[Rfam]
Nucleotides: 193
Base pairs, nucleotide, nucleotide: 006188007187008186009185010184011183017085018084019083020082021081023079024078025077033069034068035067036066037065038064039063089119090118091117092116093115094114095113098111099110100109101108120147121146124143125142126141128139129138130137150177151176152175153174154173155172156171157170
Number, partner (000 for none) and nucleotide at each position: 001000u002000g003000a004000u005000g006188a007187g008186g009185u010184a011183g012000a013000g014000g015000u016000u017085g018084c019083g020082a021081a022000u023079g024078u025077g026000a027000u028000g029000a030000g031000u032000a033069g034068g035067c036066a037065u038064g039063u040000c041000g042000a043000g044000g045000u046000g047000a048000g049000g050000a051000g052000u053000u054000g055000c056000c057000g058000u059000a060000g061000a062000a063039g064038c065037a066036u067035g068034c069033u070000u071000g072000a073000a074000a075000g076000g077025c078024a079023u080000u081021u082020u083019c084018g085017c086000c087000g088000a089119a090118g091117c092116u093115g094114g095113c096000c097000u098111g099110c100109g101108c102000a103000c104000u105000c106000c107000u108101g109100c110099g111098c112000c113095g114094c115093c116092g117091g118090c119089u120147g121146g122000g123000g124143c125142c126141g127000g128139u129138c130137c131000c132000g133000a134000a135000c136000a137130g138129g139128g140000a141126c142125g143124g144000a145000a146121c147120u148000g149000u150177c151176a152175c153174g154173g155172u156171c157170a158000a159000g160000c161000g162000a163000c164000u165000g166000a167000g168000c169000c170157u171156g172155a173154u174153c175152g176151u177150g178000u179000u180000g181000u182000g183011c184010u185009a186008u187007c188006u189000u190000a191000g192000u193000g

The record is a 193-nucleotide RNA sequence from Paenibacillus lemnae, which matches "Lysine riboswitch aptamer" in Rfam. The match comes from Rfam's covariance-model search (98 bits).